[Rfam]
RNA sequence: ACGACCUUACUUGAACAGGAUCUGUUCUAUAGGCUCGUACUUCUGCUACCUUUAGCACAAAGGUGACAGGAUUCCAAGUUUGGUUGAUGAACUGAGACUGUGCGAUCAGAGCGUGAUUAUUGGUCUUGCCUUCCUGUUGAUGGUUGGCUUUGGCUGCAGAGGAUCGUUCUUAUCCAGCUUGGUCUGGCUGAGAUGGUCACACAGUUGUCUGACAACUA
Dot-bracket structure: (((.(((.....((((((...))))))...))).).))....(((..((((((.....))))))..)))........(.(((..............((((((.(((((.((((.......(((((..(((..((.......))..)))...)))))........))))((((.((((......)))).)))).))))).)))))).......))).).
Numbered sequence: 001a002c003g004a005c006c007u008u009a010c011u012u013g014a015a016c017a018g019g020a021u022c023u024g025u026u027c028u029a030u031a032g033g034c035u036c037g038u039a040c041u042u043c044u045g046c047u048a049c050c051u052u053u054a055g056c057a058c059a060a061a062g063g064u065g066a067c068a069g070g071a072u073u074c075c076a077a078g079u080u081u082g083g084u085u086g087a088u089g090a091a092c093u094g095a096g097a098c099u100g101u102g103c104g105a106u107c108a109g110a111g112c113g114u115g116a117u118u119a120u121u122g123g124u125c126u127u128g129c130c131u132u133c134c135u136g137u138u139g140a141u142g143g144u145u146g147g148c149u150u151u152g153g154c155u156g157c158a159g160a161g162g163a164u165c166g167u168u169c170u171u172a173u174c175c176a177g178c179u180u181g182g183u184c185u186g187g188c189u190g191a192g193a194u195g196g197u198c199a200c201a202c203a204g205u206u207g208u209c210u211g212a213c214a215a216c217u218a
Stems, first nucleotide, its partner, number of pairs: 001038002003035001005033003013027006043069003048064006078217001080215003097205006104198005110168004121156005128148003133143002169192004174187004
Plant small nucleolar RNA U3: a 218-nucleotide sequence from Gossypium klotzschianum. Rfam describes the family as follows. Small nucleolar RNAs (snoRNAs) are involved in the processing and modification of rRNA in the nucleolus. There are two main classes of snoRNAs: the box C/D class, and the box H/ACA class. Its Rfam clan is "U3 clan". Rfam 15.1 lists 3,759 matches to the family in 258 species. The family's RNA type in Rfam is C/D-box small nucleolar RNA. Gene Ontology terms of the family: nucleolus and RNA processing. For this family Rfam cites "Comparative analysis of eukaryotic U3 snoRNA" (Marz and Stadler, RNA Biol, 2010). The organism belongs to Gossypium, within Eukaryota.